[Rfam]
RNA sequence: UUAGCCGAUCGGGCAAUCGCUGCUUCAGUUUGCGCAAGUAAACCGAAGGGGAGGAAAGUCCGGGCUCCAUAGGGCAAGAUGCCAGGUAACGCCUGGGCGGCGCAAGUCGACGGAAAGUGCCACAGAAAAUAUACCGCCUAAACUAUUUAAUUAGCUUAGGUAAGGGUGAAAAGGUGCGGUAAGAGCGCACCGCGCCAUUGGUAACAGUGUGCGGCAGGGCAAACCCCAUCUGGAGCAAGACCAAAUAGGAAUGCAUUGACGCGGCCCGCGUUGCAUUCGGGUAGGUUGCUUGAGGUAUAUGGUGACGUAUACCCUAGAUGAAUGAUUGUCCUCGACAGAACCCGGCUUACAGAUCGGCUAUUUUU
Numbered sequence: 001u002u003a004g005c006c007g008a009u010c011g012g013g014c015a016a017u018c019g020c021u022g023c024u025u026c027a028g029u030u031u032g033c034g035c036a037a038g039u040a041a042a043c044c045g046a047a048g049g050g051g052a053g054g055a056a057a058g059u060c061c062g063g064g065c066u067c068c069a070u071a072g073g074g075c076a077a078g079a080u081g082c083c084a085g086g087u088a089a090c091g092c093c094u095g096g097g098c099g100g101c102g103c104a105a106g107u108c109g110a111c112g113g114a115a116a117g118u119g120c121c122a123c124a125g126a127a128a129a130u131a132u133a134c135c136g137c138c139u140a141a142a143c144u145a146u147u148u149a150a151u152u153a154g155c156u157u158a159g160g161u162a163a164g165g166g167u168g169a170a171a172a173g174g175u176g177c178g179g180u181a182a183g184a185g186c187g188c189a190c191c192g193c194g195c196c197a198u199u200g201g202u203a204a205c206a207g208u209g210u211g212c213g214g215c216a217g218g219g220c221a222a223a224c225c226c227c228a229u230c231u232g233g234a235g236c237a238a239g240a241c242c243a244a245a246u247a248g249g250a251a252u253g254c255a256u257u258g259a260c261g262c263g264g265c266c267c268g269c270g271u272u273g274c275a276u277u278c279g280g281g282u283a284g285g286u287u288g289c290u291u292g293a294g295g296u297a298u299a300u301g302g303u304g305a306c307g308u309a310u311a312c313c314c315u316a317g318a319u320g321a322a323u324g325a326u327u328g329u330c331c332u333c334g335a336c337a338g339a340a341c342c343c344g345g346c347u348u349a350c351a352g353a354u355c356g357g358c359u360a361u362u363u364u365u
Stems, first nucleotide, its partner, number of pairs: 002360009011350001012330007020051002023048004028043005056348003060345005065235004072267004077231005082096005097111001098109004112226002117224002119220003134165002136161006143154002173191006192215001193213003196209005239287004249278006258272005294313008

This 365-nucleotide RNA sequence from Thiothrix eikelboomii belongs to the Rfam family "Bacterial RNase P class A". By type it is a ribozyme. NCBI's taxonomy places the organism under Bacteria, Pseudomonadota, Gammaproteobacteria, Thiotrichaceae, Thiothrix. The match comes from Rfam's covariance-model search (348 bits).